[Rfam]
RNA sequence: UUGCGCAAGUGCUAUUUAUCUGAGCAAUAUUCGCAAUCAUCUGCCGGCAGCGUAGCGCUAUCGUUAUCCACAGAAUCACUGCCCGGACAUCAGUCCACAGCGAAGCGCCCUAGACGGGGCUUUGCGGCCAGCCAUCCCAUCGGAUCGGCCAGGCCCCCGGGCUACACCGAGUCCAGAAGACCAGGUGAGGUGAGCCGGCGUUAUCCACGUCGAGCACGGACAACCAUUCAAGAGGGAGGCCCCGCAGGCCUCCCU
Numbered sequence: 001u002u003g004c005g006c007a008a009g010u011g012c013u014a015u016u017u018a019u020c021u022g023a024g025c026a027a028u029a030u031u032c033g034c035a036a037u038c039a040u041c042u043g044c045c046g047g048c049a050g051c052g053u054a055g056c057g058c059u060a061u062c063g064u065u066a067u068c069c070a071c072a073g074a075a076u077c078a079c080u081g082c083c084c085g086g087a088c089a090u091c092a093g094u095c096c097a098c099a100g101c102g103a104a105g106c107g108c109c110c111u112a113g114a115c116g117g118g119g120c121u122u123u124g125c126g127g128c129c130a131g132c133c134a135u136c137c138c139a140u141c142g143g144a145u146c147g148g149c150c151a152g153g154c155c156c157c158c159g160g161g162c163u164a165c166a167c168c169g170a171g172u173c174c175a176g177a178a179g180a181c182c183a184g185g186u187g188a189g190g191u192g193a194g195c196c197g198g199c200g201u202u203a204u205c206c207a208c209g210u211c212g213a214g215c216a217c218g219g220a221c222a223a224c225c226a227u228u229c230a231a232g233a234g235g236g237a238g239g240c241c242c243c244g245c246a247g248g249c250c251u252c253c254c255u
Stems, first nucleotide, its partner, number of pairs: 002011003043056002076193005081162004085096004100125005108117002126155004134145004165187003171181003194215002196212006233255004238250004